The record is a 147-nucleotide RNA sequence from Pseudarthrobacter sp. NBSH8, which matches "Glycine riboswitch aptamer" in Rfam. Pairs were carried over by alignment from the consensus structure. A search with the family's covariance model found it, with a score of 34 bits.
RNA sequence: CAGCUCUGGAAAGUGGCAGGCUGUCUGACUGAAGCAUCCCGGAUCGCUCCGGAAUGUCAGGGCCGCUGUGCCCACCGACGGUGCAAGCGUCAGCUUUGCGGAAGCAGGCUGCGCGGAAACUCUCAGGUCCCAGACAGAGCGGGGGAG
Numbered sequence: 001c002a003g004c005u006c007u008g009g010a011a012a013g014u015g016g017c018a019g020g021c022u023g024u025c026u027g028a029c030u031g032a033a034g035c036a037u038c039c040c041g042g043a044u045c046g047c048u049c050c051g052g053a054a055u056g057u058c059a060g061g062g063c064c065g066c067u068g069u070g071c072c073c074a075c076c077g078a079c080g081g082u083g084c085a086a087g088c089g090u091c092a093g094c095u096u097u098g099c100g101g102a103a104g105c106a107g108g109c110u111g112c113g114c115g116g117a118a119a120c121u122c123u124c125a126g127g128u129c130c131c132a133g134a135c136a137g138a139g140c141g142g143g144g145g146a147g
Stems, first nucleotide, its partner, number of pairs: 001142001003140006015072004074128003077124002081122001083120001088115002